[Rfam]
Nucleotides: 074
Stems, first nucleotide, its partner, number of pairs: 001073007010026004028044005050066005
Number, partner (000 for none) and nucleotide at each position: 001073g002072g003071g004070c005069c006068c007067g008000u009000a010026g011025c012024u013023u014000a015000a016000c017000u018000g019000a020000a021000u022000a023013g024012a025011g026010c027000a028044u029043c030042u031041g032040a033000c034000u035000a036000c037000g038000g039000a040032u041031c042030a043029g044028a045000a046000g047000g048000u049000u050066g051065g052064g053063g054062g055000u056000u057000u058000g059000a060000a061000u062054c063053c064052c065051u066050c067007c068006g069005g070004g071003c072002c073001c074000a
A member of the RNA family "tRNA" from a Cyclobacteriaceae bacterium, 74 nucleotides long.
Pairs were carried over by alignment from the consensus structure, which is taken from published work.